[Rfam]
Nucleotides: 077
Stems, first nucleotide, its partner, number of pairs: 006024008026064004031059002034056007
Number, partner (000 for none) and nucleotide at each position: 001000a002000a003000u004000c005000g006024u007023u008022a009021g010020c011019c012018a013017a014000u015000g016000g017013u018012u019011g020010g021009u022008u023007g024006a025000u026064c027063g028062c029061u030000g031059u032058c033000c034056g035055a036054u037053g038052a039051u040050u041000u042000g043000u044000g045000c046000u047000u048000u049000u050040g051039a052038u053037u054036g055035u056034u057000u058032g059031a060000u061029g062028g063027c064026g065000u066000u067000u068000c069000u070000c071000u072000c073000u074000u075000u076000a077000u

Rfam assigns this 77-nucleotide sequence from Chlorobium phaeobacteroides to the family "Chlorobi-RRM RNA". Rfam's curators put it in the seed alignment. Rfam classes the family as a cis-regulatory element. The source organism's lineage runs through Bacteria, Pseudomonadati, Chlorobiia, Chlorobium and Chlorobium phaeobacteroides.